This 208-nucleotide sequence from Sphingomonas hengshuiensis belongs to the Rfam family "permuted transfer-messenger RNA". The family's RNA type in Rfam is non-coding RNA gene. It scores 129 bits against the family's covariance model.
[Rfam]
RNA sequence: GGCGAUAAAGGGUGUCGUAGACUAGAUGCAGCGGACCCGGGGGCAGUACCCGGCGGCUCCACCAUAAACCCCGGCGACGGGGCUUCUGACGGGGCCGAACCAGGAUCGACGUGUAUUGAAAGGCGAUGUCUUUCGCUCGGAAUGGGACCACCGUGACGGCCCAUACACAAGUGCCAACGAUAACGAAGCACUCGCUAUUGCGGCGUAA
Numbered sequence: 001g002g003c004g005a006u007a008a009a010g011g012g013u014g015u016c017g018u019a020g021a022c023u024a025g026a027u028g029c030a031g032c033g034g035a036c037c038c039g040g041g042g043g044c045a046g047u048a049c050c051c052g053g054c055g056g057c058u059c060c061a062c063c064a065u066a067a068a069c070c071c072c073g074g075c076g077a078c079g080g081g082g083c084u085u086c087u088g089a090c091g092g093g094g095c096c097g098a099a100c101c102a103g104g105a106u107c108g109a110c111g112u113g114u115a116u117u118g119a120a121a122g123g124c125g126a127u128g129u130c131u132u133u134c135g136c137u138c139g140g141a142a143u144g145g146g147a148c149c150a151c152c153g154u155g156a157c158g159g160c161c162c163a164u165a166c167a168c169a170a171g172u173g174c175c176a177a178c179g180a181u182a183a184c185g186a187a188g189c190a191c192u193c194g195c196u197a198u199u200g201c202g203g204c205g206u207a208a
Base pairs, nucleotide, nucleotide: 001137002136003135004134005133015126016125017124018123027115028114029113031112032111033110037053038052039051040050041049054097055096056095057094058093059092060091138153139152140151